[Rfam]
RNA sequence: CCGGGACGCCGUGUCCCCGGAACCGUCACGACCGAUAAACUGAUCCGAGAACCACGCGCCGGUGCAGCUCCGGCGCGGGUUCGGAAACCGUCAGCCAGCAGCCGCUGCAAACCCAGGGAG
Numbered sequence: 001c002c003g004g005g006a007c008g009c010c011g012u013g014u015c016c017c018c019g020g021a022a023c024c025g026u027c028a029c030g031a032c033c034g035a036u037a038a039a040c041u042g043a044u045c046c047g048a049g050a051a052c053c054a055c056g057c058g059c060c061g062g063u064g065c066a067g068c069u070c071c072g073g074c075g076c077g078g079g080u081u082c083g084g085a086a087a088c089c090g091u092c093a094g095c096c097a098g099c100a101g102c103c104g105c106u107g108c109a110a111a112c113c114c115a116g117g118g119a120g
Stems, first nucleotide, its partner, number of pairs: 049082005057075001059073004096107004
About this RNA: A member of the RNA family "Streptomyces-metK RNA" from Streptomyces sp. DJ, 120 nucleotides long. The organism belongs to Streptomyces, within Bacteria. The family's RNA type in Rfam is small RNA.